[Rfam]
RNA sequence: CAGGUGUGAUGAUGCUGAGAAAGGUUUUGCACGCUGGACUGAGGUCCUGUGAUGUCACUUCCUCUUGGCUGUCUGACCUG
Number, nucleotide and partner (000 for none) at each position: 001c080002a079003g078004g077005u000006g000007u000008g000009a000010u000011g000012a000013u000014g000015c000016u000017g000018a000019g000020a000021a000022a000023g000024g000025u000026u000027u000028u000029g000030c000031a000032c000033g000034c000035u000036g000037g000038a000039c000040u000041g000042a000043g000044g000045u000046c000047c000048u000049g000050u000051g000052a000053u000054g000055u000056c000057a000058c000059u000060u000061c000062c000063u000064c000065u000066u000067g000068g000069c000070u000071g000072u000073c000074u000075g000076a000077c004078c003079u002080g001

Rfam assigns this 80-nucleotide RNA from Lates calcarifer to the family "Small nucleolar RNA SNORD53/SNORD92". Rfam classes the family as a C/D-box small nucleolar RNA. Lineage of the source: Eukaryota > Teleostomi > Euteleosteomorpha > Eurypterygia > Lates. Rfam 15.1 lists 2,250 matches to the family in 671 species. Clan: SNORD52 clan. On this family, see Kiss-Laszlo et al., Cell 1996: "Site-specific ribose methylation of preribosomal RNA: a novel function for small nucleolar RNAs". The base pairs follow the family's consensus structure.